[Rfam]
RNA sequence: GAAUGAGAUGAUGGUUAUCAUUUUUUUAUCGGUUUGAUAGCCGAUAUGAUGGCAUUUUAUUGUGAAUUCUGGCUGAUCAUUC
Numbered sequence: 001g002a003a004u005g006a007g008a009u010g011a012u013g014g015u016u017a018u019c020a021u022u023u024u025u026u027u028a029u030c031g032g033u034u035u036g037a038u039a040g041c042c043g044a045u046a047u048g049a050u051g052g053c054a055u056u057u058u059a060u061u062g063u064g065a066a067u068u069c070u071g072g073c074u075g076a077u078c079a080u081u082c
Stems, first nucleotide, its partner, number of pairs: 002081004036056001040053003
This 82-nucleotide RNA sequence from Coffea arabica belongs to the Rfam family "Small nucleolar RNA Z102/R77". On this family, see Chen et al., Nucleic Acids Res 2003: "The high diversity of snoRNAs in plants: identification and comparative study of 120 snoRNA genes from Oryza sativa". Rfam 15.1 lists 1,346 matches to the family in 224 species. Gene Ontology terms of the family: RNA processing and nucleolus. Lineage of the source: Eukaryota > Euphyllophyta > eudicotyledons > Rubiaceae > Coffea. The family's RNA type in Rfam is C/D-box small nucleolar RNA. A search with the family's covariance model found it, with a score of 54 bits. Clan: SNORD44 clan. The family's consensus secondary structure was predicted with PFOLD.